This 195-nucleotide RNA from Bacillus sp. 1NLA3E belongs to the Rfam family "Group II catalytic intron D1-D4-5". A reference for the family is Bonen and Vogel (2001), "The ins and outs of group II introns", Trends Genet. About the family: Group II introns are found in rRNA, tRNA and mRNA of organelles in fungi, plants and protists, and also in mRNA in bacteria.

Nucleotides: 195
Stems, first nucleotide, its partner, number of pairs: 018053006032042003054187003061106004065098009113183005122174006128146002134142002151167002154165004
Number, partner (000 for none) and nucleotide at each position: 001000c002000u003000g004000a005000a006000g007000g008000g009000u010000u011000a012000u013000a014000u015000c016000g017000a018053a019052g020051a021050a022049u023048c024000a025000a026000a027000u028000g029000a030000u031000g032042g033041g034040g035000u036000a037000a038000c039000g040034c041033c042032c043000g044000g045000a046000a047000g048023g049022g050021u051020u052019c053018u054187c055186u056185c057000u058000u059000a060000g061106c062105c063104g064103a065098a066097u067096a068095g069094c070093a071092u072091u073090a074000g075000a076000u077000u078000u079000a080000g081000u082000a083000a084000g085000a086000a087000u088000g089000a090073u091072a092071g093070u094069g095068u096067u097066a098065u099000a100000a101000g102000c103064u104063c105062g106061g107000u108000g109000a110000a111000a112000a113183g114182g115181c116180g117179u118000g119000a120000g121000a122174a123173a124172c125171u126170a127169u128146c129145g130000u131000a132000g133000c134142a135141g136000u137000g138000u139000g140000g141135c142134u143000g144000c145129c146128g147000a148000a149000a150000c151167c152166c153000u154165a155164c156163u157162c158000g159000a160000g161000g162157g163156a164155g165154u166152g167151g168000u169127g170126u171125a172124g173123u174122u175000c176000a177000u178000g179117a180116u181115g182114c183113u184000u185056g186055a187054g188000u189000u190000g191000a192000a193000u194000g195000a